This 109-nucleotide RNA sequence belongs to the Rfam family "Actinomyces-1 RNA".
[Rfam]
RNA sequence: ACUACCGCCAGAGGUUAGCGGUCGCGAAGGUUGGGGAGCCUGAUGACCGGCCGAGAGCUAGUUGGACUGAGGUUUAAGGGAGCCUACAGUGAACGUUCUGGCGAAGGAG
Numbered sequence: 001a002c003u004a005c006c007g008c009c010a011g012a013g014g015u016u017a018g019c020g021g022u023c024g025c026g027a028a029g030g031u032u033g034g035g036g037a038g039c040c041u042g043a044u045g046a047c048c049g050g051c052c053g054a055g056a057g058c059u060a061g062u063u064g065g066a067c068u069g070a071g072g073u074u075u076a077a078g079g080g081a082g083c084c085u086a087c088a089g090u091g092a093a094c095g096u097u098c099u100g101g102c103g104a105a106g107g108a109g
Stems, first nucleotide, its partner, number of pairs: 006103007013059004019053006028041005061094003066090001070085004
It is one of the family's seed sequences.